[Rfam]
RNA sequence: GGUGCAAUGAUGUGACAAAAACACAUUGUGUUAUUGGGCAGUGGACGUUGCCACAAGGUAGCGCCGUGAGCCUAUUAUUUAACGACUUCUCCUUCCACUGAGCACU
Dot-bracket structure: (((((................................................................................................)))))